[Rfam]
RNA: Small nucleolar RNA R12
RNA sequence: UUGAGAGAUGACGAAAGAAAUCAUUCGGAUUCCCAUUAAUUUCCUCCGGGAAAGAUGUGAUCACAAACCAACUACUUCUGAUUCAU
Numbered sequence: 001u002u003g004a005g006a007g008a009u010g011a012c013g014a015a016a017g018a019a020a021u022c023a024u025u026c027g028g029a030u031u032c033c034c035a036u037u038a039a040u041u042u043c044c045u046c047c048g049g050g051a052a053a054g055a056u057g058u059g060a061u062c063a064c065a066a067a068c069c070a071a072c073u074a075c076u077u078c079u080g081a082u083u084c085a086u
Stems, first nucleotide, its partner, number of pairs: 002085004